[Rfam]
RNA sequence: UAACAUGUGCGGUUUGCUUGAGGUUUGGCGACCUGACAAGAUUGCUCGACUUAUAGCUAGAAGGUGUAGUCAAGUGCACCAGCUAAGCCAAGCGAGGGGUAACGGAUGCCGCAGUCCUACCUCGCUUGGUUUCGCUAG
Number, nucleotide and partner (000 for none) at each position: 001u000002a000003a000004c000005a000006u000007g000008u000009g112010c111011g110012g109013u108014u000015u000016g057017c056018u055019u000020g000021a052022g051023g050024u049025u048026u000027g000028g000029c000030g000031a000032c000033c000034u000035g000036a000037c000038a000039a000040g000041a000042u000043u000044g000045c000046u000047c000048g025049a024050c023051u022052u021053a000054u000055a018056g017057c016058u000059a000060g000061a000062a000063g000064g000065u078066g077067u076068a075069g000070u000071c000072a000073a000074g000075u068076g067077c066078a065079c138080c000081a136082g135083c134084u000085a132086a000087g000088c129089c128090a127091a126092g125093c124094g123095a122096g121097g120098g000099g000100u000101a000102a000103c000104g117105g116106a115107u114108g013109c012110c011111g010112c009113a000114g107115u106116c105117c104118u000119a000120c097121c096122u095123c094124g093125c092126u091127u090128g089129g088130u000131u000132u085133c000134g083135c082136u081137a000138g079

A member of the RNA family "RT-12 RNA" from Spongiibacter pelagi, 138 nucleotides long.